[Rfam]
RNA: Selenocysteine insertion sequence 1
Organism: Mytilus coruscus
RNA sequence: GACUAUUUAUGACAUCUUUACACAAAAUCCUUUGGACGUGUAAUGAUUGAUACUUUAGUC
Numbered sequence: 001g002a003c004u005a006u007u008u009a010u011g012a013c014a015u016c017u018u019u020a021c022a023c024a025a026a027a028u029c030c031u032u033u034g035g036a037c038g039u040g041u042a043a044u045g046a047u048u049g050a051u052a053c054u055u056u057a058g059u060c
Stems, first nucleotide, its partner, number of pairs: 001060005014047003018043006028036003